[Rfam]
This 289-nucleotide RNA sequence from Macaca fascicularis belongs to the Rfam family "Mason-Pfizer monkey virus packaging signal". For this family Rfam cites "Mutational analysis of the predicted secondary RNA structure of the Mason-Pfizer monkey virus packaging signal" (Mustafa et al., Virus Res, 2004). Taxonomically the source falls in Macaca (Eukaryota, Opisthokonta, Deuterostomia, Teleostomi). It scores 187 bits against the family's covariance model.
RNA sequence: UGGCGCCGAACAGGGACCCGAACGAGGGACUCCAUGAGGAAGAGGACGUAAAGGACGGUCGAGCUAACGAAGACAAAGGAGUCAAACUCUUCCGAUCACCAGGGAACCUGCCACGCCAGGAUCGAAGGUAAGUGGCGUCGAAAUGGGACAAGAAUUAAGCCAACAUCAAAUAUAUGUAGGACAAUUAAAAGAGGCUUUAAAGAUACGAGGAGUAAAGGUUAAAGGUAAUGAUUUGUUUAAAUUUUUUGAUUUUGUAAAAGACACUCAGGCCCAAAUGCAAUAUGACCCU
Numbered sequence: 001u002g003g004c005g006c007c008g009a010a011c012a013g014g015g016a017c018c019c020g021a022a023c024g025a026g027g028g029a030c031u032c033c034a035u036g037a038g039g040a041a042g043a044g045g046a047c048g049u050a051a052a053g054g055a056c057g058g059u060c061g062a063g064c065u066a067a068c069g070a071a072g073a074c075a076a077a078g079g080a081g082u083c084a085a086a087c088u089c090u091u092c093c094g095a096u097c098a099c100c101a102g103g104g105a106a107c108c109u110g111c112c113a114c115g116c117c118a119g120g121a122u123c124g125a126a127g128g129u130a131a132g133u134g135g136c137g138u139c140g141a142a143a144u145g146g147g148a149c150a151a152g153a154a155u156u157a158a159g160c161c162a163a164c165a166u167c168a169a170a171u172a173u174a175u176g177u178a179g180g181a182c183a184a185u186u187a188a189a190a191g192a193g194g195c196u197u198u199a200a201a202g203a204u205a206c207g208a209g210g211a212g213u214a215a216a217g218g219u220u221a222a223a224g225g226u227a228a229u230g231a232u233u234u235g236u237u238u239a240a241a242u243u244u245u246u247u248g249a250u251u252u253u254g255u256a257a258a259a260g261a262c263a264c265u266c267a268g269g270c271c272c273a274a275a276u277g278c279a280a281u282a283u284g285a286c287c288c289u
Stems, first nucleotide, its partner, number of pairs: 006028002014023001033045001035043001086129003090125002096121001097119001099115001102112002135149001138147002156199003159195003206248008216234006258289001260287001